Annotation: This 103-nucleotide RNA sequence from Clostridium paridis belongs to the Rfam family "Purine riboswitch aptamer". It scores 79 bits against the family's covariance model. Gene Ontology term of the family: purine nucleobase biosynthetic process.
RNA sequence: AAAAUGUUAAAAAUGUUCACUUAUAUAAAUCUGGGAAUAAGGUCCGGAUGUAUCUACCGAGCUACCGUAAAUAGUUUGAGCUAUAAGUGCUGAUCUUUUAUUA
Dot-bracket structure: .................((((((((...(((((((.......)))))))........(((((((.......)))))))...))))))))..............
Numbered sequence: 001a002a003a004a005u006g007u008u009a010a011a012a013a014u015g016u017u018c019a020c021u022u023a024u025a026u027a028a029a030u031c032u033g034g035g036a037a038u039a040a041g042g043u044c045c046g047g048a049u050g051u052a053u054c055u056a057c058c059g060a061g062c063u064a065c066c067g068u069a070a071a072u073a074g075u076u077u078g079a080g081c082u083a084u085a086a087g088u089g090c091u092g093a094u095c096u097u098u099u100a101u102u103a
Stems, first nucleotide, its partner, number of pairs: 018089008029049007058078007